The family of this 107-nucleotide RNA from Saimiri boliviensis is "Vault RNA".
From the family's description: This family of RNAs are found as part of the enigmatic vault ribonucleoprotein complex.
The family's RNA type in Rfam is non-coding RNA gene.
RNA sequence: AAGCCGGCUUUAGCUCAGCAGUUAUUUUGACAAUGCUUUAUGCUUUCUAUGGUGAAAAACAACCACUCUGCAUGGUUCGAGAUCUACAGGUGCUCUCUGGCCUUUUA
Numbered sequence: 001a002a003g004c005c006g007g008c009u010u011u012a013g014c015u016c017a018g019c020a021g022u023u024a025u026u027u028u029g030a031c032a033a034u035g036c037u038u039u040a041u042g043c044u045u046u047c048u049a050u051g052g053u054g055a056a057a058a059a060c061a062a063c064c065a066c067u068c069u070g071c072a073u074g075g076u077u078c079g080a081g082a083u084c085u086a087c088a089g090g091u092g093c094u095c096u097c098u099g100g101c102c103u104u105u106u107a
Base pairs, nucleotide, nucleotide: 003101004100005099006098007097013091014090015089018087020085021084026081027080028079029078030077
Dot-bracket structure: ..(((((.....(((..(.((....(((((..............................................)))))..)).).))).....)))))......